[Rfam]
RNA sequence: GGAUCCUUUAAAUACAGUCCUGUGAGGCUGGGAAGGUAACGGCUAGGUAGCUGUGUCAUUGUGCUGCCUAAAAUUUCCUUGUCCUCAUGACGGACAAGGGAAUUUUUAUU
Number, nucleotide and partner (000 for none) at each position: 001g000002g000003a000004u000005c036006c035007u034008u033009u032010a000011a000012a000013u000014a000015c030016a029017g028018u027019c026020c000021u000022g000023u000024g000025a000026g019027g018028c017029u016030g015031g000032g009033a008034a007035g006036g005037u000038a000039a000040c000041g000042g000043c000044u000045a000046g068047g067048u066049a065050g064051c063052u000053g000054u000055g000056u000057c000058a000059u000060u000061g000062u000063g051064c050065u049066g048067c047068c046069u000070a000071a105072a104073a103074u102075u101076u100077c099078c098079u097080u096081g095082u094083c093084c092085u000086c000087a000088u000089g000090a000091c000092g084093g083094a082095c081096a080097a079098g078099g077100g076101a075102a074103u073104u072105u071106u000107u000108a000109u000110u000
RNA: PyrR binding site